M-box riboswitch aptamer (ykoK leader): a 155-nucleotide RNA sequence from Streptococcus oralis. The sequence is in the family's curated seed alignment. Pairs were carried over by alignment from the consensus structure. Gene Ontology terms of the family: regulation of gene expression and response to magnesium ion. Lineage of the source: Bacteria > Bacillati > Bacillota > Lactobacillales > Streptococcus.
RNA sequence: AUGGAAAAUCGGUAGGUGAGGCUUACCAUAAGGAUACGGAUGACUACCGCAAAGCAGUGGAGACACUACUCGUUGGUCAACAGUCCUGAUCGCCAAGGUCAAGACUAUGCUCAUUUCAUUGCCUUAUGGAGUUAAAGCUUGAACGGUAAAUACUU
Numbered sequence: 001a002u003g004g005a006a007a008a009u010c011g012g013u014a015g016g017u018g019a020g021g022c023u024u025a026c027c028a029u030a031a032g033g034a035u036a037c038g039g040a041u042g043a044c045u046a047c048c049g050c051a052a053a054g055c056a057g058u059g060g061a062g063a064c065a066c067u068a069c070u071c072g073u074u075g076g077u078c079a080a081c082a083g084u085c086c087u088g089a090u091c092g093c094c095a096a097g098g099u100c101a102a103g104a105c106u107a108u109g110c111u112c113a114u115u116u117c118a119u120u121g122c123c124u125u126a127u128g129g130a131g132u133u134a135a136a137g138c139u140u141g142a143a144c145g146g147u148a149a150a151u152a153c154u155u
Stems, first nucleotide, its partner, number of pairs: 005151001010146001011144001013096001015139003020133003026129008040114004046077004056067001058065002083105003089099003
Dot-bracket structure: ....(....((.[.(((..(((...((((((((......((((..((((......(.((....)).)......)))).....(((...(((....])))...))).....)))).......)))))))).)))...)))....).)....)....